[Rfam]
RNA sequence: ACUGUCAAGCCGGGUAGUGAAUGGCUCGGUUCGAGAAGCCGAAGAAGGACGUGGCAAGCUGCGAUAAGCUUGGGCGAGGUGCAUGCAGCCUUUGAGCCCAAGAUCUCCUAAUGUGACUUCAUAGGUCGCUUCGGCGACCUGUACAUUUCUAUGUACGGGAACGCGGUGAAUUGAAACAUCUUAGUAGCCGUAGGAAAAGAAACCAAUAUGGGAUUCCCUUAUUAGCGGCGAGCGGACGGGGAACACGCACAAACUGAACGCCUUCGAGAGAUCGUAGGUGGAUGUGGUUUGGCCGCCGUUGGAUCCAAGCAGUUUAGUUGAACUCUUGCUGGAAAGCAGGACCAUAGAGAGUGAUAGUCUCGUAGACGACUACUGCACCGAUCUUAGGCGUGCCAAGAGUAGCAUGGGUUGGAAAUCCUGUGUGAAUAUGGGAGGCACUUACCCUUUUCCAAUGCUAAAUACUUCUCGAAUCCGAUAGCGUACUAAGUACUGUGAAGGAACGCUGAAAAGUACUCUUCGAAGGAGGCUUAAAAGACCCUGAAACUAUCUGGUCUUAGGCUA
Numbered sequence: 001a002c003u004g005u006c007a008a009g010c011c012g013g014g015u016a017g018u019g020a021a022u023g024g025c026u027c028g029g030u031u032c033g034a035g036a037a038g039c040c041g042a043a044g045a046a047g048g049a050c051g052u053g054g055c056a057a058g059c060u061g062c063g064a065u066a067a068g069c070u071u072g073g074g075c076g077a078g079g080u081g082c083a084u085g086c087a088g089c090c091u092u093u094g095a096g097c098c099c100a101a102g103a104u105c106u107c108c109u110a111a112u113g114u115g116a117c118u119u120c121a122u123a124g125g126u127c128g129c130u131u132c133g134g135c136g137a138c139c140u141g142u143a144c145a146u147u148u149c150u151a152u153g154u155a156c157g158g159g160a161a162c163g164c165g166g167u168g169a170a171u172u173g174a175a176a177c178a179u180c181u182u183a184g185u186a187g188c189c190g191u192a193g194g195a196a197a198a199g200a201a202a203c204c205a206a207u208a209u210g211g212g213a214u215u216c217c218c219u220u221a222u223u224a225g226c227g228g229c230g231a232g233c234g235g236a237c238g239g240g241g242a243a244c245a246c247g248c249a250c251a252a253a254c255u256g257a258a259c260g261c262c263u264u265c266g267a268g269a270g271a272u273c274g275u276a277g278g279u280g281g282a283u284g285u286g287g288u289u290u291g292g293c294c295g296c297c298g299u300u301g302g303a304u305c306c307a308a309g310c311a312g313u314u315u316a317g318u319u320g321a322a323c324u325c326u327u328g329c330u331g332g333a334a335a336g337c338a339g340g341a342c343c344a345u346a347g348a349g350a351g352u353g354a355u356a357g358u359c360u361c362g363u364a365g366a367c368g369a370c371u372a373c374u375g376c377a378c379c380g381a382u383c384u385u386a387g388g389c390g391u392g393c394c395a396a397g398a399g400u401a402g403c404a405u406g407g408g409u410u411g412g413a414a415a416u417c418c419u420g421u422g423u424g425a426a427u428a429u430g431g432g433a434g435g436c437a438c439u440u441a442c443c444c445u446u447u448u449c450c451a452a453u454g455c456u457a458a459a460u461a462c463u464u465c466u467c468g469a470a471u472c473c474g475a476u477a478g479c480g481u482a483c484u485a486a487g488u489a490c491u492g493u494g495a496a497g498g499a500a501c502g503c504u505g506a507a508a509a510g511u512a513c514u515c516u517u518c519g520a521a522g523g524a525g526g527c528u529u530a531a532a533a534g535a536c537c538c539u540g541a542a543a544c545u546a547u548c549u550g551g552u553c554u555u556a557g558g559c560u561a
Base pairs, nucleotide, nucleotide: 009552010551011550012549013548014547015546016545017544023538024503025502028473029472030470031469032468033467034466035465037463038462046109047108048107049106050063051062052061069102070101071100072099073098074097078090079089080088113122114121115120142155143154144153145152146151162193163191164190165189166188167187173180174179203211204210215242216241217240218239219238225233226232245456247455248454249453254287255286256285265274266273267272294390295389296388297387302383303382304381305380317367318366319365323340325339327338328337329336343347349361350360351359402423403422404421405420406419407418408417430450431449432448433447434446490497491496
Background
Shown here is a 561-nucleotide part of an RNA from Candidatus Nanohalobium constans, a member of the family "Archaeal large subunit ribosomal RNA". The organism belongs to Candidatus Nanohalobium, within Archaea. A search with the family's covariance model found it, with a score of 2551 bits.